Source information:
The record is a 77-nucleotide RNA from Alligator mississippiensis, which matches "Mammalian CPEB3 ribozyme" in Rfam. It scores 46 bits against the family's covariance model. The family's consensus secondary structure is taken from published work.
RNA sequence: GGUUGCAAGUUUGAGGCCACAGCAGAAGCAGUUACUGCACAGCCCUGUCAGAUUCCAAUAAAUCUGUGAAUUCUGCU
Numbered sequence: 001g002g003u004u005g006c007a008a009g010u011u012u013g014a015g016g017c018c019a020c021a022g023c024a025g026a027a028g029c030a031g032u033u034a035c036u037g038c039a040c041a042g043c044c045c046u047g048u049c050a051g052a053u054u055c056c057a058a059u060a061a062a063u064c065u066g067u068g069a070a071u072u073c074u075g076c077u
Base pairs, nucleotide, nucleotide: 013045015044016043017042021077022076023075024074025073026072027071028040049066050065051064052063053062054061